[Rfam]
RNA sequence: UAUCAUGAUAGAGGUGCGGAUUUCAUCAGUACUCUGCGGCAAAAGGCUCGGGAGCCGCCGGAGGGAAAAGGGGAAGCCGCCGAAGGAAUCCAUCAGCGUCCCGGAGCAAGGAUUCCUGGGCUGCUGCAGAAGAUGCAGCAGACUGUCACAGGGCUGUGGAGAGCUAUCAUUGGC
Numbered sequence: 001u002a003u004c005a006u007g008a009u010a011g012a013g014g015u016g017c018g019g020a021u022u023u024c025a026u027c028a029g030u031a032c033u034c035u036g037c038g039g040c041a042a043a044a045g046g047c048u049c050g051g052g053a054g055c056c057g058c059c060g061g062a063g064g065g066a067a068a069a070g071g072g073g074a075a076g077c078c079g080c081c082g083a084a085g086g087a088a089u090c091c092a093u094c095a096g097c098g099u100c101c102c103g104g105a106g107c108a109a110g111g112a113u114u115c116c117u118g119g120g121c122u123g124c125u126g127c128a129g130a131a132g133a134u135g136c137a138g139c140a141g142a143c144u145g146u147c148a149c150a151g152g153g154c155u156g157u158g159g160a161g162a163g164c165u166a167u168c169a170u171u172g173g174c
Stems, first nucleotide, its partner, number of pairs: 006169006016080004021075004032065004037060003084117008093108001118144002121141008146159005